[Rfam]
RNA sequence: UGUCUCCUCCAUUUCUCCUCCAAGAAUGGAUUUAUGCCCGCCGCGUGCGGGCAUUUUUUU
Number, nucleotide and partner (000 for none) at each position: 001u000002g000003u000004c000005u000006c000007c000008u030009c029010c028011a027012u026013u025014u024015c000016u000017c000018c000019u000020c000021c000022a000023a000024g014025a013026a012027u011028g010029g009030a008031u000032u000033u000034a000035u053036g052037c051038c050039c049040g048041c047042c000043g000044c000045g000046u000047g041048c040049g039050g038051g037052c036053a035054u000055u000056u000057u000058u000059u000060u000
This 60-nucleotide RNA sequence from Dechloromonas denitrificans belongs to the Rfam family "Betaproteobacteria toxic small RNA". Pairs were carried over by alignment from the consensus structure, which was predicted with WAR. It scores 61 bits against the family's covariance model. A reference for the family is Sass et al. (2017), "Identification of small RNAs abundant in Burkholderia cenocepacia biofilms reveal putative regulators with a potential role in carbon and iron metabolism", Sci Rep. NCBI's taxonomy places the organism under Bacteria, Pseudomonadati, Pseudomonadota, Betaproteobacteria, Dechloromonas. From the family's description: Overexpression in amino aid rich medium attenuates growth, suggesting role in repressing amino acid intake and metabolism.